[Rfam]
RNA sequence: AUGCCUUAAACUUAUGAGUAAGGAAAAUAAUGAUUAGGGGUGACACCUGGAUCCUCACUGCUAAUGUGAGAUGAAUUUUUUUAAGCGGGUAAUGUUUGCCCCUAAGGUGACCCGCCUACUUUGCUGGAUGUCUGAGAGUCCCGGUCUGCCCG
Numbered sequence: 001a002u003g004c005c006u007u008a009a010a011c012u013u014a015u016g017a018g019u020a021a022g023g024a025a026a027a028u029a030a031u032g033a034u035u036a037g038g039g040g041u042g043a044c045a046c047c048u049g050g051a052u053c054c055u056c057a058c059u060g061c062u063a064a065u066g067u068g069a070g071a072u073g074a075a076u077u078u079u080u081u082u083a084a085g086c087g088g089g090u091a092a093u094g095u096u097u098g099c100c101c102c103u104a105a106g107g108u109g110a111c112c113c114g115c116c117u118a119c120u121u122u123g124c125u126g127g128a129u130g131u132c133u134g135a136g137a138g139u140c141c142c143g144g145u146c147u148g149c150c151c152g
Stems, first nucleotide, its partner, number of pairs: 004023005032053004037048003054070005086152005094146001096144003102136002105133005111127002114124002
The family of this 152-nucleotide sequence from Carlito syrichta is "U12 minor spliceosomal RNA". Taxonomically the source falls in Carlito (Eukaryota, Gnathostomata, Euteleostomi, Euarchontoglires). Pairs were carried over by alignment from the consensus structure. It is annotated as a spliceosomal small nuclear RNA.